[Rfam]
RNA sequence: GCCUUCCUGUUAACCGGCCCUUAGGGUUUCCAAGCUAUUACUGGCGUCAUCCAGUUUCGCUGGAUGUCGAGUGGUUCUGUCCACUCUGUUGACGCCUCCCUGUUGUUAGCACUUCGAAGCCGCCCACGGGGCGGCUUCUUUUUU
Numbered sequence: 001g002c003c004u005u006c007c008u009g010u011u012a013a014c015c016g017g018c019c020c021u022u023a024g025g026g027u028u029u030c031c032a033a034g035c036u037a038u039u040a041c042u043g044g045c046g047u048c049a050u051c052c053a054g055u056u057u058c059g060c061u062g063g064a065u066g067u068c069g070a071g072u073g074g075u076u077c078u079g080u081c082c083a084c085u086c087u088g089u090u091g092a093c094g095c096c097u098c099c100c101u102g103u104u105g106u107u108a109g110c111a112c113u114u115c116g117a118a119g120c121c122g123c124c125c126a127c128g129g130g131g132c133g134g135c136u137u138c139u140u141u142u143u144u
Stems, first nucleotide, its partner, number of pairs: 001045003007016001017039001022037003027032001049065004069086006091104004116138010
RNA: Alphaproteobacterial sRNA BjrC1505
Organism: Chelatococcus reniformis